[Rfam]
RNA sequence: UUCUGAAAAAGGCAAAGCAGGUGAAAUCCUGUGACGCAAAACUAAAGGGUCUAAGUCUAUAGAUAUGACAGCCAGUUGCCAAA
Numbered sequence: 001u002u003c004u005g006a007a008a009a010a011g012g013c014a015a016a017g018c019a020g021g022u023g024a025a026a027u028c029c030u031g032u033g034a035c036g037c038a039a040a041a042c043u044a045a046a047g048g049g050u051c052u053a054a055g056u057c058u059a060u061a062g063a064u065a066u067g068a069c070a071g072c073c074a075g076u077u078g079c080c081a082a083a
Stems, first nucleotide, its partner, number of pairs: 012037002017032005040077004047073002049069003056063002

Background: Shown here is an 83-nucleotide RNA from Psychrilyobacter sp. S5, a member of the family "c-di-GMP-I riboswitch aptamer". GEMM was predicted in a large-scale screen for bacterial structured RNA regulatory elements.